Rotavirus cis-acting replication element (CRE): a 68-nucleotide sequence from Rotavirus alphagastroenteritidis.
The sequence is in the family's curated seed alignment.
Rfam describes the family as follows. This family represents a Rotavirus cis-acting replication element (CRE) found at the 3'-end of rotavirus mRNAs. The family is thought to promote the synthesis of minus strand RNA to form viral dsRNA.
The family's consensus secondary structure was predicted with PFOLD.
By type it is a cis-regulatory element.
RNA sequence: GGAAUUUAAUUCGUUAUCGAUUUGAGAAUGGGUAUGACAAAGUAAGAAUAGAAAGCGCUUAUGUGACC
Number, nucleotide and partner (000 for none) at each position: 001g068002g067003a000004a064005u063006u000007u061008a060009a059010u000011u000012c057013g056014u055015u054016a000017u052018c051019g000020a049021u048022u047023u046024g000025a000026g000027a000028a000029u000030g000031g000032g000033u000034a000035u000036g000037a000038c000039a000040a000041a000042g000043u000044a000045a000046g023047a022048a021049u020050a000051g018052a017053a000054a015055g014056c013057g012058c000059u009060u008061a007062u000063g005064u004065g000066a000067c002068c001